[Rfam]
Record summary
Shown here is an 88-nucleotide RNA from a Microbacteriaceae bacterium, a member of the family "S10-Clostridia ribosomal protein leader". The base pairs follow the family's consensus structure, which is taken from published work. A reference for the family is Eckert and Weinberg (2020), "Discovery of 20 novel ribosomal leader candidates in bacteria and archaea", BMC Microbiol.
RNA sequence: UGGUCGCGGGGAAGCCCGAGGUUGCGAUCUUUACCGAGGCGCAAUUGCGGUUCGGCGGAGCGAAGGCGCUGUUUUUGGGUGACCGCCU
Numbered sequence: 001u002g003g004u005c006g007c008g009g010g011g012a013a014g015c016c017c018g019a020g021g022u023u024g025c026g027a028u029c030u031u032u033a034c035c036g037a038g039g040c041g042c043a044a045u046u047g048c049g050g051u052u053c054g055g056c057g058g059a060g061c062g063a064a065g066g067c068g069c070u071g072u073u074u075u076u077g078g079g080u081g082a083c084c085g086c087c088u
Stems, first nucleotide, its partner, number of pairs: 014056003018053003025047004065087004071083003